[Rfam]
RNA sequence: AACCCUAACAAAAGCAUUGACUGGUUUUGUUUGCAGUAAGUGCUUUUUGUUUGGGUAG
Numbered sequence: 001a002a003c004c005c006u007a008a009c010a011a012a013a014g015c016a017u018u019g020a021c022u023g024g025u026u027u028u029g030u031u032u033g034c035a036g037u038a039a040g041u042g043c044u045u046u047u048u049g050u051u052u053g054g055g056u057a058g
Stems, first nucleotide, its partner, number of pairs: 002056004008050005013044006020037003
The record is a 58-nucleotide RNA sequence from Salmo salar, which matches "miR-430 microRNA precursor family" in Rfam. It is one of the family's seed sequences. Its Rfam clan is "mir-290 clan". On this family, see Giraldez et al., Science 2005: "MicroRNAs regulate brain morphogenesis in zebrafish". Lineage of the source: Eukaryota > Eumetazoa > Bilateria > Euteleostomi > Salmo.